[Rfam]
RNA: MIR5269 microRNA precursor family
RNA sequence: UUGGGUUAAAUCAAUGUAGGUCCCGCACUUUGAAAAUGGGUCCCACAUAAAGUAGUAGGACCUACAUUGAUUUCACCUAA
Numbered sequence: 001u002u003g004g005g006u007u008a009a010a011u012c013a014a015u016g017u018a019g020g021u022c023c024c025g026c027a028c029u030u031u032g033a034a035a036a037u038g039g040g041u042c043c044c045a046c047a048u049a050a051a052g053u054a055g056u057a058g059g060a061c062c063u064a065c066a067u068u069g070a071u072u073u074c075a076c077c078u079a080a
Base pairs, nucleotide, nucleotide: 001080002079003078004077005076006075008073009072010071011070012069013068014067015066016065017064018063023058025056027053028052029051030050031049032048
Dot-bracket structure: ((((((.(((((((((((....(.(.((((((...............))))))..).)....))))))))))).))))))